Rfam assigns this 107-nucleotide RNA sequence from Paenibacillus aquistagni to the family "Guanidine-I riboswitch aptamer". Gene Ontology term of the family: regulation of gene expression. On this family, see Nelson et al., Mol Cell 2017: "Metabolism of Free Guanidine in Bacteria Is Regulated by a Widespread Riboswitch Class".
RNA sequence: CGAAGCGUUCUCUAGGGUUCCGCAGCGAUAUGCUUGACGCAGCUGGUCUGGUCCGAGAGAGAACCGCAGCUUGCGCUGUGACACGGAGGGAUAAAAGCCUGGGAGAU
Numbered sequence: 001c002g003a004a005g006c007g008u009u010c011u012c013u014a015g016g017g018u019u020c021c022g023c024a025g026c027g028a029u030a031u032g033c034u035u036g037a038c039g040c041a042g043c044u045g046g047u048c049u050g051g052u053c054c055g056a057g058a059g060a061g062a063a064c065c066g067c068a069g070c071u072u073g074c075g076c077u078g079u080g081a082c083a084c085g086g087a088g089g090g091a092u093a094a095a096a097g098c099c100u101g102g103g104a105g106a107u
Stems, first nucleotide, its partner, number of pairs: 007064006015054002020051002022048001023045004065080006082102001084105001088100003